[Rfam]
RNA sequence: GAGUUUUAAAAGAUGAUCGCUGCCUGAUUAAUUCAGGGGGAGGAAAGUCCGGGCUCUACAGGGCAAAGUGCCAGAUAACGUCUGGGGAGCGUGAGCUUACGACAAGUGCAACAGAAAAUAUACCGCCGACAGGUAAGGGUGAAAUGGUGCGGUAAGAGCGCACCGCAUAAUUAGUAAUAAUUAUGGCAUUGUAAACUCCACUUAGAGCAAGACCAAAUAGGCUUCUUACAUAUGGCCCAUAUUUGAAGCGGGUAGGUUGCUUGAACUAAUAAGUGAUUAUUAGUCUAGAUGAAUGAUCAUCACCAUUUCUUAAUGGUACAAAACCCGGCUUAUUGUUAAAACUCUCAA
Numbered sequence: 001g002a003g004u005u006u007u008a009a010a011a012g013a014u015g016a017u018c019g020c021u022g023c024c025u026g027a028u029u030a031a032u033u034c035a036g037g038g039g040g041a042g043g044a045a046a047g048u049c050c051g052g053g054c055u056c057u058a059c060a061g062g063g064c065a066a067a068g069u070g071c072c073a074g075a076u077a078a079c080g081u082c083u084g085g086g087g088a089g090c091g092u093g094a095g096c097u098u099a100c101g102a103c104a105a106g107u108g109c110a111a112c113a114g115a116a117a118a119u120a121u122a123c124c125g126c127c128g129a130c131a132g133g134u135a136a137g138g139g140u141g142a143a144a145u146g147g148u149g150c151g152g153u154a155a156g157a158g159c160g161c162a163c164c165g166c167a168u169a170a171u172u173a174g175u176a177a178u179a180a181u182u183a184u185g186g187c188a189u190u191g192u193a194a195a196c197u198c199c200a201c202u203u204a205g206a207g208c209a210a211g212a213c214c215a216a217a218u219a220g221g222c223u224u225c226u227u228a229c230a231u232a233u234g235g236c237c238c239a240u241a242u243u244u245g246a247a248g249c250g251g252g253u254a255g256g257u258u259g260c261u262u263g264a265a266c267u268a269a270u271a272a273g274u275g276a277u278u279a280u281u282a283g284u285c286u287a288g289a290u291g292a293a294u295g296a297u298c299a300u301c302a303c304c305a306u307u308u309c310u311u312a313a314u315g316g317u318a319c320a321a322a323a324c325c326c327g328g329c330u331u332a333u334u335g336u337u338a339a340a341a342c343u344c345u346c347a348a
Base pairs, nucleotide, nucleotide: 001344002343003342004341005340006339007338008337009336011333012301013300014299015298016297017296018295020040021039023037024036025035026034027033045331046330047329049328050327051326052325053324054207055206056205057204061238062237063236064235066203067202068201069200070199071085072084073083074082075081086100087098088097089096090095101198102197106196107195108192109191110190123138124137125134126133127132146164147163148162149161150160151159165187166185167184168183169182170181171180172179173178211258212257213256214255221249222248223247224246225245230242231241232240233239265284266283267282268281269280270279271278272277

The family of this 348-nucleotide RNA sequence from Paraphotobacterium marinum is "Bacterial RNase P class A". Lineage of the source: Bacteria > Pseudomonadati > Vibrionales > Vibrionaceae > Paraphotobacterium. Rfam classes the family as a ribozyme.